RNA sequence: GCCUCAUUGGCUCAGUGGUAAAGCGUCUCACUAGUAAUGAGAAGAUCGCCUGUUCGAUUCAGGCAUGAGGCA
Numbered sequence: 001g002c003c004u005c006a007u008u009g010g011c012u013c014a015g016u017g018g019u020a021a022a023g024c025g026u027c028u029c030a031c032u033a034g035u036a037a038u039g040a041g042a043a044g045a046u047c048g049c050c051u052g053u054u055c056g057a058u059u060c061a062g063g064c065a066u067g068a069g070g071c072a
Stems, first nucleotide, its partner, number of pairs: 001071007010024003026042005048064005

Shown here is a 72-nucleotide RNA from Colletotrichum chlorophyti, a member of the family "tRNA". Rfam classes the family as a transfer RNA. The organism belongs to Colletotrichum, within Eukaryota. Pairs were carried over by alignment from the consensus structure, which is taken from published work. The match comes from Rfam's covariance-model search (66 bits). Gene Ontology term of the family: triplet codon-amino acid adaptor activity.